[Rfam]
Record summary: A member of the RNA family "ZMP/ZTP riboswitch aptamer (pfl RNA motif)" from Dialister succinatiphilus, 86 nucleotides long. NCBI's taxonomy places the organism under Bacteria, Bacillati, Bacillota, Dialister, Dialister succinatiphilus. Rfam links the family to the GO terms one-carbon metabolic process and regulation of purine nucleotide biosynthetic process. The family's consensus secondary structure is taken from published work.
RNA sequence: AAGAGGUACCGGAACUGACGGAGAAAUGUGGAAUUGACCACGUGAACCGGUAUUAUCUGAAUCAGCCGACCGUCUGGGCAGGGAAA
Numbered sequence: 001a002a003g004a005g006g007u008a009c010c011g012g013a014a015c016u017g018a019c020g021g022a023g024a025a026a027u028g029u030g031g032a033a034u035u036g037a038c039c040a041c042g043u044g045a046a047c048c049g050g051u052a053u054u055a056u057c058u059g060a061a062u063c064a065g066c067c068g069a070c071c072g073u074c075u076g077g078g079c080a081g082g083g084a085a086a
Base pairs, nucleotide, nucleotide: 003056005054006053007052008051009050010049011048012047015044017074018073019072020071021070028041029040030039031038063081065079066078067077